[Rfam]
RNA sequence: CACGCCUGCGAGGAUCGAAUGGUCCCAACAGGUCCCUCAGUUCAAGCUUUCAGUUGAACUAGAGACGAAAGGGUGGUUUUUAUGGAUGUCUUUUGUCCACCCGUCAACGCCCCCCCCAUGAACUCUUGCUGGCGAGAGCUCGGGGAGGAAACAAAAACCAGUCCUUGUU
Numbered sequence: 001c002a003c004g005c006c007u008g009c010g011a012g013g014a015u016c017g018a019a020u021g022g023u024c025c026c027a028a029c030a031g032g033u034c035c036c037u038c039a040g041u042u043c044a045a046g047c048u049u050u051c052a053g054u055u056g057a058a059c060u061a062g063a064g065a066c067g068a069a070a071g072g073g074u075g076g077u078u079u080u081u082a083u084g085g086a087u088g089u090c091u092u093u094u095g096u097c098c099a100c101c102c103g104u105c106a107a108c109g110c111c112c113c114c115c116c117c118a119u120g121a122a123c124u125c126u127u128g129c130u131g132g133c134g135a136g137a138g139c140u141c142g143g144g145g146a147g148g149a150a151a152c153a154a155a156a157a158c159c160a161g162u163c164c165u166u167g168u169u
Base pairs, nucleotide, nucleotide: 007030008029012026013025016021035067036064037063038062040060041058042057043056044055085163086162087161088158089157091156092155093154094153095152096151110148111147112145113144114143115142120141121140123138124137125136126135127134128133
This 169-nucleotide part of an RNA from Fusarium sp. NRRL 66182 belongs to the Rfam family "Ascomycota telomerase RNA". Its Rfam clan is "Telomerase clan". Pairs were carried over by alignment from the consensus structure. Rfam 15.1 lists 475 matches to the family in 456 species. It is annotated as a non-coding RNA gene. Its family is annotated with telomerase catalytic core complex, telomere maintenance via telomerase and telomerase activity in the Gene Ontology.